The family of this 276-nucleotide sequence from Odobenus rosmarus is "Small Cajal body specific RNA 6". It scores 143 bits against the family's covariance model. NCBI's taxonomy places the organism under Eukaryota, Chordata, Gnathostomata, Eutheria, Odobenus rosmarus. Rfam 15.1 lists 1,309 matches to the family in 627 species. For this family Rfam cites "Cajal body-specific small nuclear RNAs: a novel class of 2'-O-methylation and pseudouridylation guide RNAs" (Darzacq et al., EMBO J, 2002). The base pairs follow the family's consensus structure, which is taken from published work. Rfam's curators write: U88 is small Cajal body specific RNA (scaRNA). scaRNAs are a novel class of small nuclear RNAs which localise to the Cajal bodies. U88 is found associated with both fibrillarin and Gar1p and co-localises with coilin in Cajal bodies.
RNA sequence: GGUCAGUGAUGAUUGGUAAAAGGUCUGAUUGCACCUAAUGUCACAGUCCCUUCUUUGCCCUCAACUCCCAGCAGCCCAUUGUUUUUUCCCGUCACAUUUAAGUCAUGUGUAUGGGGAUAAUGGAGCAGCUGAUAAUUUGGGAUUCUGUCAGCGUGUGUUUCUGAGAGGAUACAGUUCACAGCUGACAAAUAUCCAACAGAACCAGCUAUGCAGGAGAUUGAAGAGUGGCAGUCAUGGGUGUGAUGGUGCAUGAUCUCAAGUUUUCAAUCUGAGACC
Numbered sequence: 001g002g003u004c005a006g007u008g009a010u011g012a013u014u015g016g017u018a019a020a021a022g023g024u025c026u027g028a029u030u031g032c033a034c035c036u037a038a039u040g041u042c043a044c045a046g047u048c049c050c051u052u053c054u055u056u057g058c059c060c061u062c063a064a065c066u067c068c069c070a071g072c073a074g075c076c077c078a079u080u081g082u083u084u085u086u087u088c089c090c091g092u093c094a095c096a097u098u099u100a101a102g103u104c105a106u107g108u109g110u111a112u113g114g115g116g117a118u119a120a121u122g123g124a125g126c127a128g129c130u131g132a133u134a135a136u137u138u139g140g141g142a143u144u145c146u147g148u149c150a151g152c153g154u155g156u157g158u159u160u161c162u163g164a165g166a167g168g169a170u171a172c173a174g175u176u177c178a179c180a181g182c183u184g185a186c187a188a189a190u191a192u193c194c195a196a197c198a199g200a201a202c203c204a205g206c207u208a209u210g211c212a213g214g215a216g217a218u219u220g221a222a223g224a225g226u227g228g229c230a231g232u233c234a235u236g237g238g239u240g241u242g243a244u245g246g247u248g249c250a251u252g253a254u255c256u257c258a259a260g261u262u263u264u265c266a267a268u269c270u271g272a273g274a275c276c
Base pairs, nucleotide, nucleotide: 001276002275003274004273038256040254041253042252047230049228050227052225065216066215067214068213069131070130071129072128074126075125088115089114090113091112092111094110095109096108097107139194141193142192143191146188154180155179156178157177160174